[Rfam]
RNA: Eukaryotic large subunit ribosomal RNA, nucleotides 667 to 949
RNA sequence: GAGUCUACCUAUUAUGCGAGUGUUCGAGUGGAAAAACUCAAACGCGUACCGAAAGGGAUUUAAGAUGUGAGGCAAUAGCUGCAACAUCAACCAAUCUUGAUUCUUUGAUGAUAGACUUGAGUAAGAGCAUAAUCGGUAGGACCCGAAAGAUGGUGAACUACGGUUGAGUAGGGUGAAGCCACGGGAAACUCUGGUGGAAGCUCGAAGCGUUACUGACGUGCAAAUCGUUCGUCAAACUUGACUGUAGGGGCGAAAGACUAAUCGAACCAUCUAGUAGCUGGUU
Number, nucleotide and partner (000 for none) at each position: 001g000002a000003g000004u000005c139006u138007a137008c136009c135010u000011a133012u132013u131014a130015u129016g128017c127018g000019a000020g045021u044022g043023u000024u000025c000026g039027a038028g037029u036030g000031g000032a000033a000034a000035a000036a029037c028038u027039c026040a000041a000042a000043c022044g021045c020046g000047u000048a000049c056050c055051g000052a000053a000054a000055g050056g049057g000058a000059u000060u000061u000062a000063a000064g088065a087066u086067g085068u084069g000070a000071g080072g079073c078074a000075a000076u000077a000078g073079c072080u071081g000082c000083a000084a068085c067086a066087u065088c064089a000090a122091c121092c119093a118094a117095u115096c114097u113098u000099g000100a000101u000102u108103c000104u000105u000106u000107g000108a102109u000110g000111a000112u000113a097114g096115a095116c000117u094118u093119g092120a000121g091122u090123a000124a000125g000126a000127g017128c016129a015130u014131a013132a012133u011134c000135g009136g008137u007138a006139g005140g000141a000142c281143c280144c000145g278146a000147a000148a000149g271150a270151u269152g268153g267154u266155g000156a000157a000158c247159u246160a245161c244162g243163g242164u241165u240166g239167a238168g237169u235170a000171g203172g202173g201174u200175g000176a000177a000178g195179c194180c193181a192182c000183g190184g189185g000186a000187a000188a000189c184190u183191c000192u181193g180194g179195u178196g000197g000198a000199a000200g174201c173202u172203c171204g000205a000206a000207g232208c231209g230210u000211u000212a228213c227214u000215g226216a225217c000218g000219u000220g000221c000222a000223a000224a000225u216226c215227g213228u212229u000230c209231g208232u207233c000234a000235a169236a000237c168238u167239u166240g165241a164242c163243u162244g161245u160246a159247g158248g000249g259250g258251c000252g000253a000254a000255a000256g000257a000258c250259u249260a000261a000262u000263c000264g000265a000266a154267c153268c152269a151270u150271c149272u000273a000274g000275u000276a000277g000278c145279u000280g143281g142282u000283u000